A member of the RNA family "Bacterial RNase P class A" from Rhodobacteraceae bacterium WD3A24, 380 nucleotides long.

[Rfam]
RNA sequence: GCGGAUGGCCGGACGGCCGCACCCCGGCGGGGUGAGGAAAGUCCGGACUCCAUGAGGCGACGGUGCCGGGUAACGCCCGGCCGGGGAAACCCGAGGGAAAGCGCCGCAGAAAACAGACCGCCCGGCCCGCGGGCCGGGCAAGGGUGAAACGGUGGAGUAAGAGCCCACCGCGGGGCUGGCAACAGCACCGGCACGGCAAGCCCCACCGGGAGCAAUGCCGAAUAGGGGCCUCACGCGGGUCACGGCCCGCAGGGACGCUUCAGCCCGAGGCCCGGGUUGGCAGCACGACCCCGCCAGCAAUGACGGGGCAAGAUGAAUGGCCGUCCGGGGGCGGCAAUCGCGGCCCUCGACAGAAUCCGGCUUACAGGCCGUCCGCGCAC
Numbered sequence: 001g002c003g004g005a006u007g008g009c010c011g012g013a014c015g016g017c018c019g020c021a022c023c024c025c026g027g028c029g030g031g032g033u034g035a036g037g038a039a040a041g042u043c044c045g046g047a048c049u050c051c052a053u054g055a056g057g058c059g060a061c062g063g064u065g066c067c068g069g070g071u072a073a074c075g076c077c078c079g080g081c082c083g084g085g086g087a088a089a090c091c092c093g094a095g096g097g098a099a100a101g102c103g104c105c106g107c108a109g110a111a112a113a114c115a116g117a118c119c120g121c122c123c124g125g126c127c128c129g130c131g132g133g134c135c136g137g138g139c140a141a142g143g144g145u146g147a148a149a150c151g152g153u154g155g156a157g158u159a160a161g162a163g164c165c166c167a168c169c170g171c172g173g174g175g176c177u178g179g180c181a182a183c184a185g186c187a188c189c190g191g192c193a194c195g196g197c198a199a200g201c202c203c204c205a206c207c208g209g210g211a212g213c214a215a216u217g218c219c220g221a222a223u224a225g226g227g228g229c230c231u232c233a234c235g236c237g238g239g240u241c242a243c244g245g246c247c248c249g250c251a252g253g254g255a256c257g258c259u260u261c262a263g264c265c266c267g268a269g270g271c272c273c274g275g276g277u278u279g280g281c282a283g284c285a286c287g288a289c290c291c292c293g294c295c296a297g298c299a300a301u302g303a304c305g306g307g308g309c310a311a312g313a314u315g316a317a318u319g320g321c322c323g324u325c326c327g328g329g330g331g332c333g334g335c336a337a338u339c340g341c342g343g344c345c346c347u348c349g350a351c352a353g354a355a356u357c358c359g360g361c362u363u364a365c366a367g368g369c370c371g372u373c374c375g376c377g378c379a380c
Stems, first nucleotide, its partner, number of pairs: 001376010011365001012325007020034006039363003043360005048212004056261002059258001061208005066080005081095001082093004096203002101201002103197003118143002120139008151169005170192001171190003175186004216282004226273006252266003289308005295302002

Description:
The family's RNA type in Rfam is ribozyme.